This 248-nucleotide RNA sequence from Scytonema hofmannii belongs to the Rfam family "HNH endonuclease-associated RNA and ORF (HEARO) RNA".
[Rfam]
RNA sequence: GUCAGCACCCCUGCUUAAAGGCUAGGGGCUUCAUGCCUCAAGCUUUUAGGAUUAGCAGACCCGAUGGCGUGGGAGAGGUUCGUACUCACUAUUACCACGCAGCCGUUACAGAGAAGUGUUCAAGUUCUCACCUUCGGAUACGUGAUGCCAGUCCGUCGCUCUGAAACCAAACAAUUAAACAGGUUUAUAAGGGUAAGCCAGUGUUGUUUGGAAAGUACCGCUCUGUAACUCGUCUAGGCUCACAUUAC
Numbered sequence: 001g002u003c004a005g006c007a008c009c010c011c012u013g014c015u016u017a018a019a020g021g022c023u024a025g026g027g028g029c030u031u032c033a034u035g036c037c038u039c040a041a042g043c044u045u046u047u048a049g050g051a052u053u054a055g056c057a058g059a060c061c062c063g064a065u066g067g068c069g070u071g072g073g074a075g076a077g078g079u080u081c082g083u084a085c086u087c088a089c090u091a092u093u094a095c096c097a098c099g100c101a102g103c104c105g106u107u108a109c110a111g112a113g114a115a116g117u118g119u120u121c122a123a124g125u126u127c128u129c130a131c132c133u134u135c136g137g138a139u140a141c142g143u144g145a146u147g148c149c150a151g152u153c154c155g156u157c158g159c160u161c162u163g164a165a166a167c168c169a170a171a172c173a174a175u176u177a178a179a180c181a182g183g184u185u186u187a188u189a190a191g192g193g194u195a196a197g198c199c200a201g202u203g204u205u206g207u208u209u210g211g212a213a214a215g216u217a218c219c220g221c222u223c224u225g226u227a228a229c230u231c232g233u234c235u236a237g238g239c240u241c242a243c244a245u246u247a248c
Stems, first nucleotide, its partner, number of pairs: 001060003005056002007053001009028002011025002014021002029050003063234005068099005105229009128164002132158001135155005147239003167211009179202002182199007
The family's RNA type in Rfam is non-coding RNA gene.